[Rfam]
RNA sequence: CCUGGUGGGUUGCUGUCUGUCUGCCUGUCUGUGCCUGCUGUACAGCCUCCCUGAUGUCCUGCACAGCAAGUGUAGACAGGCAGACACACCACAACUGCUGC
Number, nucleotide and partner (000 for none) at each position: 001c000002c000003u000004g000005g000006u000007g000008g000009g000010u000011u000012g000013c000014u000015g000016u000017c000018u086019g085020u000021c000022u082023g081024c080025c079026u078027g077028u076029c075030u074031g000032u000033g000034c070035c000036u068037g067038c066039u065040g064041u063042a000043c061044a060045g059046c000047c000048u000049c000050c000051c000052u000053g000054a000055u000056g000057u000058c000059c045060u044061g043062c000063a041064c040065a039066g038067c037068a036069a000070g034071u000072g000073u000074a030075g029076a028077c027078a026079g025080g024081c023082a022083g000084a000085c019086a018087c000088a000089c000090c000091a000092c000093a000094a000095c000096u000097g000098c000099u000100g000101c000
RNA: mir-214 microRNA precursor family
Organism: Electrophorus electricus